This 78-nucleotide sequence from Acipenser ruthenus belongs to the Rfam family "Small nucleolar RNA SNORD74". Lineage of the source: Eukaryota > Bilateria > Chondrostei > Acipenseridae > Acipenser. It is annotated as a C/D-box small nucleolar RNA. It scores 68 bits against the family's covariance model. Pairs were carried over by alignment from the consensus structure, which was predicted with PFOLD.
RNA sequence: UGUACUUGCAUAUGAUGAAAUGAGUGUUGGUAGGGACAUCUGAUUGAUGAUGAAAUGCCAACUUCUCUGAAUUGUACA
Numbered sequence: 001u002g003u004a005c006u007u008g009c010a011u012a013u014g015a016u017g018a019a020a021u022g023a024g025u026g027u028u029g030g031u032a033g034g035g036a037c038a039u040c041u042g043a044u045u046g047a048u049g050a051u052g053a054a055a056u057g058c059c060a061a062c063u064u065c066u067c068u069g070a071a072u073u074g075u076a077c078a
Base pairs, nucleotide, nucleotide: 001078002077003076004075005074